[Rfam]
Lysine riboswitch aptamer: a 188-nucleotide sequence from Aquibacillus koreensis. The match comes from Rfam's covariance-model search (112 bits).
RNA sequence: CGGUGAGGUAGAGGUGCAAAAUAACAUAAGUAACCAAUAGGAACUGACUGUGAUGAUGAUUGGUGAAAGGGUUCUUUGCCGAAGUAGGGAAGAGUCGUCAAACUUUCUCUUACUGGUAUAUUCUUGAAUAAGGAAUGUACUGUCAUGUGUGGUUCGUAAUUAAGCCUACAUGAAGAGCUACUGAUCGA
Numbered sequence: 001c002g003g004u005g006a007g008g009u010a011g012a013g014g015u016g017c018a019a020a021a022u023a024a025c026a027u028a029a030g031u032a033a034c035c036a037a038u039a040g041g042a043a044c045u046g047a048c049u050g051u052g053a054u055g056a057u058g059a060u061u062g063g064u065g066a067a068a069g070g071g072u073u074c075u076u077u078g079c080c081g082a083a084g085u086a087g088g089g090a091a092g093a094g095u096c097g098u099c100a101a102a103c104u105u106u107c108u109c110u111u112a113c114u115g116g117u118a119u120a121u122u123c124u125u126g127a128a129u130a131a132g133g134a135a136u137g138u139a140c141u142g143u144c145a146u147g148u149g150u151g152g153u154u155c156g157u158a159a160u161u162a163a164g165c166c167u168a169c170a171u172g173a174a175g176a177g178c179u180a181c182u183g184a185u186c187g188a
Stems, first nucleotide, its partner, number of pairs: 007182005016079005023073003033064006040057001083114007091106004115141011143173007
Dot-bracket structure: ......(((((....(((((..(((.......((((((.(................).))))))......))).)))))...(((((((.((((........)))).)))))))(((((((((((.....))))))))))).(((((((.................)))))))....)))))......